[Rfam]
RNA sequence: AAAAAGGGUACUCGCUACUUCAAUAGUGCGUCAUGUCGGUUUAACGUCGGCAUGGCGGGGUAUGGCCAUCAAGACAUACCCAGUACGUAAUUUUUGGAAACGUGAGGCUGUUGGCUGCCAAUUCAGCACCGGCGCCUCC
Numbered sequence: 001a002a003a004a005a006g007g008g009u010a011c012u013c014g015c016u017a018c019u020u021c022a023a024u025a026g027u028g029c030g031u032c033a034u035g036u037c038g039g040u041u042u043a044a045c046g047u048c049g050g051c052a053u054g055g056c057g058g059g060g061u062a063u064g065g066c067c068a069u070c071a072a073g074a075c076a077u078a079c080c081c082a083g084u085a086c087g088u089a090a091u092u093u094u095u096g097g098a099a100a101c102g103u104g105a106g107g108c109u110g111u112u113g114g115c116u117g118c119c120a121a122u123u124c125a126g127c128a129c130c131g132g133c134g135c136c137u138c139c
Base pairs, nucleotide, nucleotide: 008086009085010084011083012082013028014027015026016025017024029057030056031055032054033053034052035051036050037049038048039047040046058081059080060079061078062077063076064075105137106136107135108134110133111132112131113130114129116128117127118126
The family of this 139-nucleotide RNA from Camponotus floridanus is "U11 spliceosomal RNA". By type it is a spliceosomal small nuclear RNA. Lineage of the source: Eukaryota > Neoptera > Apocrita > Formicidae > Camponotus. On this family, see Schneider et al., Proc Natl Acad Sci U S A 2004: "Identification of an evolutionarily divergent U11 small nuclear ribonucleoprotein particle in Drosophila".